Y RNA: a 97-nucleotide RNA sequence from Anolis carolinensis.
The literature on the family includes a 1995 paper in RNA by Van Horn et al., "Caenorhabditis elegans embryos contain only one major species of Ro RNP".
The source organism's lineage runs through Eukaryota, Eumetazoa, Sauria, Squamata and Anolis.
About the family: Y RNAs are components of the Ro ribonucleoprotein particle (Ro RNP), in association with Ro60 and La proteins. The Y RNAs and Ro60 and La proteins are well conserved, but the function of the Ro RNP is not known. In humans the RNA component can be one of four small RNAs -- hY1, hY3, hY4 and hY5.
[Rfam]
RNA sequence: GGCUGGUCCGAAAGUAGUGGGUUACCACAGAAAUUAUUACAGUUAGUUUCACUAACCUUUCUAAGUUCCACCCCACUGCUAACCUUGACUGGUCUCC
Numbered sequence: 001g002g003c004u005g006g007u008c009c010g011a012a013a014g015u016a017g018u019g020g021g022u023u024a025c026c027a028c029a030g031a032a033a034u035u036a037u038u039a040c041a042g043u044u045a046g047u048u049u050c051a052c053u054a055a056c057c058u059u060u061c062u063a064a065g066u067u068c069c070a071c072c073c074c075a076c077u078g079c080u081a082a083c084c085u086u087g088a089c090u091g092g093u094c095u096c097c
Stems, first nucleotide, its partner, number of pairs: 001094008010086002015081001016077006029062002032059002